Rfam assigns this 64-nucleotide sequence from Noviherbaspirillum galbum to the family "Betaproteobacteria toxic small RNA".
A reference for the family is Kimelman et al. (2012), "A vast collection of microbial genes that are toxic to bacteria", Genome Res.
It scores 55 bits against the family's covariance model.
The family's consensus secondary structure was predicted with WAR.
[Rfam]
RNA sequence: UGUCUCCUCCAACUCUCCUUGAAUUGGAUUUACCCGCUGCCCGCAAGGCCAGCGGGUUUUUUUA
Numbered sequence: 001u002g003u004c005u006c007c008u009c010c011a012a013c014u015c016u017c018c019u020u021g022a023a024u025u026g027g028a029u030u031u032a033c034c035c036g037c038u039g040c041c042c043g044c045a046a047g048g049c050c051a052g053c054g055g056g057u058u059u060u061u062u063u064a
Stems, first nucleotide, its partner, number of pairs: 008028005014022002032057008